RNA: Bacillaceae-1 RNA
RNA sequence: UAGUUAGGAUCGAAGCCUUAAAAAUCGCCACAUCGUGUGGCAACGUCUUCGUGACCAACAUCCUGUUGU
Numbered sequence: 001u002a003g004u005u006a007g008g009a010u011c012g013a014a015g016c017c018u019u020a021a022a023a024a025u026c027g028c029c030a031c032a033u034c035g036u037g038u039g040g041c042a043a044c045g046u047c048u049u050c051g052u053g054a055c056c057a058a059c060a061u062c063c064u065g066u067u068g069u
Stems, first nucleotide, its partner, number of pairs: 011051005017045001027041005056068004